[Rfam]
RNA sequence: GCGGAUAUGGCGGAAUUGGCAGACGCGUUAGCUUCAGGUGCUAGUGGCUUAGCCGUGCAGGUUCAAAUCCUGUUAUCCGCA
Numbered sequence: 001g002c003g004g005a006u007a008u009g010g011c012g013g014a015a016u017u018g019g020c021a022g023a024c025g026c027g028u029u030a031g032c033u034u035c036a037g038g039u040g041c042u043a044g045u046g047g048c049u050u051a052g053c054c055g056u057g058c059a060g061g062u063u064c065a066a067a068u069c070c071u072g073u074u075a076u077c078c079g080c081a
Stems, first nucleotide, its partner, number of pairs: 001080007010026003028044005057073005